Rfam assigns this 120-nucleotide RNA from Peribacillus muralis to the family "ylbH leader".
This family is a putative regulatory RNA structure that is found upstream of the ylbH gene in B. subtilis and related low GC Gram-positive bacteria.
RNA sequence: AAAAAAAAAGCCCUGCAAAAUAUUUGCAGGGUCCUUCUAUGUCUAACUAUGGACCAGAAGGCAAAGGGAGAGGAGAAACCGGAGGAAGAACUUAUGGGGAAACGUAAGCCUUCUCCGCGG
Numbered sequence: 001a002a003a004a005a006a007a008a009a010g011c012c013c014u015g016c017a018a019a020a021u022a023u024u025u026g027c028a029g030g031g032u033c034c035u036u037c038u039a040u041g042u043c044u045a046a047c048u049a050u051g052g053a054c055c056a057g058a059a060g061g062c063a064a065a066g067g068g069a070g071a072g073g074a075g076a077a078a079c080c081g082g083a084g085g086a087a088g089a090a091c092u093u094a095u096g097g098g099g100a101a102a103c104g105u106a107a108g109c110c111u112u113c114u115c116c117g118c119g120g
Stems, first nucleotide, its partner, number of pairs: 011031009032068005041054004080117004085113004091108004
It scores 111 bits against the family's covariance model. Rfam links the family to the GO term regulation of gene expression. For this family Rfam cites "New RNA motifs suggest an expanded scope for riboswitches in bacterial genetic control" (Barrick et al., Proc Natl Acad Sci U S A, 2004).